[Rfam]
RNA sequence: AUGAAGGUAGCAGGAGAGUGGGGAAUCGCCCCCACACCGACGAGGCAAGUUUAGCUUAUUGAAAAAUAGCUGAACCACUCUUUCAGGUGCCAAUUAUGAUUGGCGUGGACUG
Numbered sequence: 001a002u003g004a005a006g007g008u009a010g011c012a013g014g015a016g017a018g019u020g021g022g023g024a025a026u027c028g029c030c031c032c033c034a035c036a037c038c039g040a041c042g043a044g045g046c047a048a049g050u051u052u053a054g055c056u057u058a059u060u061g062a063a064a065a066a067u068a069g070c071u072g073a074a075c076c077a078c079u080c081u082u083u084c085a086g087g088u089g090c091c092a093a094u095u096a097u098g099a100u101u102g103g104c105g106u107g108g109a110c111u112g
Stems, first nucleotide, its partner, number of pairs: 011112003021033003036088003039084002043082003049075008
A member of the RNA family "Glycine riboswitch aptamer" from Shewanella violacea, 112 nucleotides long. From the family's description: This family represents the bacterial glycine riboswitch. Rfam links the family to the GO term glycine biosynthetic process. The match comes from Rfam's covariance-model search (32 bits).